Rfam assigns this 99-nucleotide RNA from Corallincola holothuriorum to the family "Guanidine-I riboswitch aptamer".
Lineage of the source: Bacteria > Pseudomonadati > Alteromonadales > Psychromonadaceae > Corallincola.
Pairs were carried over by alignment from the consensus structure.
The match comes from Rfam's covariance-model search (91 bits).
RNA sequence: AAAAUAGUUGGCUAGGGUUCCGGCUUGCAUCGCAAGUGUCUGGUCCGAGAGCGAACGACCUCUUUCGAGGUUACACGGCGGGAUAAAAGCCCGGGAGGA
Numbered sequence: 001a002a003a004a005u006a007g008u009u010g011g012c013u014a015g016g017g018u019u020c021c022g023g024c025u026u027g028c029a030u031c032g033c034a035a036g037u038g039u040c041u042g043g044u045c046c047g048a049g050a051g052c053g054a055a056c057g058a059c060c061u062c063u064u065u066c067g068a069g070g071u072u073a074c075a076c077g078g079c080g081g082g083a084u085a086a087a088a089g090c091c092c093g094g095g096a097g098g099a
Stems, first nucleotide, its partner, number of pairs: 007056003011052002015046002020043002022040001023037006057072006074094001076097001080092003